[Rfam]
A member of the RNA family "mir-35 microRNA precursor family" from Caenorhabditis elegans, 73 nucleotides long. The base pairs follow the family's consensus structure, which was predicted with RNAalifold. A reference for the family is Lau et al. (2001), "An abundant class of tiny RNAs with probable regulatory roles in Caenorhabditis elegans", Science. Rfam links the family to the GO terms RISC complex and miRNA-mediated post-transcriptional gene silencing. Its Rfam clan is "mir-36 clan".
RNA sequence: GAGCCAUUGCUGGUUUCUUCCACAGUGGUACUUUCCAUUAGAACUAUCACCGGGUGGAAACUAGCAGUGGCUC
Numbered sequence: 001g002a003g004c005c006a007u008u009g010c011u012g013g014u015u016u017c018u019u020c021c022a023c024a025g026u027g028g029u030a031c032u033u034u035c036c037a038u039u040a041g042a043a044c045u046a047u048c049a050c051c052g053g054g055u056g057g058a059a060a061c062u063a064g065c066a067g068u069g070g071c072u073c
Stems, first nucleotide, its partner, number of pairs: 001073007009065010021054001023052001025050006034043001036041001